[Rfam]
RNA sequence: AAAAGCAAAGAUAAAAACGCAACGUGCAUCUUUUGGAUGCACCAGAGCCGGUAGGUAGCCCGGCCGUCCUGAUGGUAUCAGGGUAAGUAACCUGCUCUCCUGGGUUGUCCGUUCUUUGUUCAUAACAC
Numbered sequence: 001a002a003a004a005g006c007a008a009a010g011a012u013a014a015a016a017a018c019g020c021a022a023c024g025u026g027c028a029u030c031u032u033u034u035g036g037a038u039g040c041a042c043c044a045g046a047g048c049c050g051g052u053a054g055g056u057a058g059c060c061c062g063g064c065c066g067u068c069c070u071g072a073u074g075g076u077a078u079c080a081g082g083g084u085a086a087g088u089a090a091c092c093u094g095c096u097c098u099c100c101u102g103g104g105u106u107g108u109c110c111g112u113u114c115u116u117u118g119u120u121c122a123u124a125a126c127a128c
Base pairs, nucleotide, nucleotide: 004120005119006118007117008116009115010114011113047064048063049062050061051060066084067083068082069081070080071079072078073077094105095104096103097102
The record is a 128-nucleotide RNA from Lachnospiraceae bacterium MD308, which matches "azaaromatic riboswitch aptamer (yjdF RNA)" in Rfam.